[Rfam]
RNA sequence: GUGGAGUUGGACCUUCCAUACGCACUAAUUUCUUGCCUUUUACCAGAGAUUACCGUGGGAUGGCCAAAUACACUCCAAUACCCUAAUCUUUGGAACCUCAUGAAUUCGAUUAACAU
Numbered sequence: 001g002u003g004g005a006g007u008u009g010g011a012c013c014u015u016c017c018a019u020a021c022g023c024a025c026u027a028a029u030u031u032c033u034u035g036c037c038u039u040u041u042a043c044c045a046g047a048g049a050u051u052a053c054c055g056u057g058g059g060a061u062g063g064c065c066a067a068a069u070a071c072a073c074u075c076c077a078a079u080a081c082c083c084u085a086a087u088c089u090u091u092g093g094a095a096c097c098u099c100a101u102g103a104a105u106u107c108g109a110u111u112a113a114c115a116u
Base pairs, nucleotide, nucleotide: 003076004075005074006073008066009065010064012062014060015059016058017057018056026052027051028050029049030048031047032046033045100116101115102114
Dot-bracket structure: ..((((.(((.(.(((((.......((((((((...........))))))))...))))).).)))......)))).......................(((...........)))